[Rfam]
RNA sequence: AGUUUUCACAAUGAGGAUACAAAAGCUCCCUCUUCUGAUAUUUCAAGUUGAGGAAGAUUGCUGGCAGAAUCGAACCUUAAACUCUGUAGCCACCACUGAGUGA
Numbered sequence: 001a002g003u004u005u006u007c008a009c010a011a012u013g014a015g016g017a018u019a020c021a022a023a024a025g026c027u028c029c030c031u032c033u034u035c036u037g038a039u040a041u042u043u044c045a046a047g048u049u050g051a052g053g054a055a056g057a058u059u060g061c062u063g064g065c066a067g068a069a070u071c072g073a074a075c076c077u078u079a080a081a082c083u084c085u086g087u088a089g090c091c092a093c094c095a096c097u098g099a100g101u102g103a
Base pairs, nucleotide, nucleotide: 006103007102008101009100

Rfam assigns this 103-nucleotide sequence from Senna tora to the family "Small nucleolar RNA R30/Z108".
The match comes from Rfam's covariance-model search (74 bits).
It is annotated as a C/D-box small nucleolar RNA.
The family has 6 seed sequences and 626 matches in Rfam 15.1.
From the family's description: snoR30 is a C/D box small nucleolar RNA which acts as a methylation guide for 18S ribosomal RNA in plants.
The family is grouped with related families in Rfam's "SNORD100 clan".
The family's consensus secondary structure was predicted with PFOLD.